[Rfam]
RNA sequence: CGGAUUGACUCUGGAGAGCGGCCGUCAGGCCCACCGACGGGGCAGGGACCGGUUUGUCCGGUUUCAAACUCUCAGGUUCAGGACAGAGGGGCGGCG
Number, nucleotide and partner (000 for none) at each position: 001c000002g000003g000004a000005u000006u091007g000008a000009c088010u087011c086012u085013g084014g000015a000016g000017a000018g000019c000020g031021g030022c029023c028024g000025u000026c000027a000028g023029g022030c021031c020032c000033a077034c076035c075036g073037a072038c000039g000040g071041g070042g069043c000044a000045g000046g064047g063048a062049c061050c060051g059052g058053u000054u000055u000056g000057u000058c052059c051060g050061g049062u048063u047064u046065c000066a000067a000068a000069c042070u041071c040072u037073c036074a000075g035076g034077u033078u000079c000080a000081g000082g000083a000084c013085a012086g011087a010088g009089g000090g000091g006092c000093g000094g000095c000096g000